[Rfam]
Nucleotides: 131
Base pairs, nucleotide, nucleotide: 008080009079011077012076014028015027016026017025029051030050031049032048033047034046035045036044052075053074054073055072056071099128100127103125104124105123106122107121110120112118
Number, partner (000 for none) and nucleotide at each position: 001000a002000a003000a004000a005000a006000g007000g008080g009079u010000c011077a012076g013000u014028u015027g016026g017025c018000u019000a020000u021000a022000c023000a024000u025017g026016c027015c028014a029051c030050a031049c032048u033047c034046a035045c036044u037000u038000u039000c040000a041000u042000a043000u044036a045035g046034u047033g048032g049031g050030u051029g052075c053074u054073a055072u056071a057000c058000a059000u060000u061000u062000a063000u064000c065000a066000a067000g068000a069000c070000a071056u072055a073054u074053g075052g076012c077011u078000a079009a080008c081000a082000u083000a084000a085000u086000u087000u088000g089000u090000g091000g092000a093000a094000u095000u096000a097000g098000a099128u100127g101000a102000a103125g104124u105123u106122g107121g108000c109000u110120g111000c112118u113000c114000g115000c116000c117000a118112a119000a120110c121107c122106c123105a124104g125103c126000c127100u128099a129000c130000a131000a
This 131-nucleotide sequence from Dendrobium catenatum belongs to the Rfam family "U11 spliceosomal RNA". The source organism's lineage runs through Eukaryota, Embryophyta, Mesangiospermae, Petrosaviidae and Dendrobium. The family is grouped with related families in Rfam's "U1 clan". The family's consensus secondary structure is taken from published work.